Rfam assigns this 132-nucleotide sequence from Echeneis naucrates to the family "Small nucleolar RNA SNORA69". Rfam classes the family as an H/ACA-box small nucleolar RNA. It scores 49 bits against the family's covariance model. Taxonomically the source falls in Echeneis (Eukaryota, Eumetazoa, Neoteleostei, Echeneidae). Rfam 15.1 lists 808 matches to the family in 584 species.

RNA sequence: AAAGCAGGUCUGCAAUUGCAGCACUUCAUUGCAGUAGAGUGCUGUCAUUAACCCUGCUGAGAGCAUCUUUCUGUUAUGGAGCUCUUAUUCCUGCUCACUCUAGGUGAACAGGAUGCUCUGUAGCUGAACAUU
Numbered sequence: 001a002a003a004g005c006a007g008g009u010c011u012g013c014a015a016u017u018g019c020a021g022c023a024c025u026u027c028a029u030u031g032c033a034g035u036a037g038a039g040u041g042c043u044g045u046c047a048u049u050a051a052c053c054c055u056g057c058u059g060a061g062a063g064c065a066u067c068u069u070u071c072u073g074u075u076a077u078g079g080a081g082c083u084c085u086u087a088u089u090c091c092u093g094c095u096c097a098c099u100c101u102a103g104g105u106g107a108a109c110a111g112g113a114u115g116c117u118c119u120g121u122a123g124c125u126g127a128a129c130a131u132u
Stems, first nucleotide, its partner, number of pairs: 003058006019044008071126001073124009090112004095107004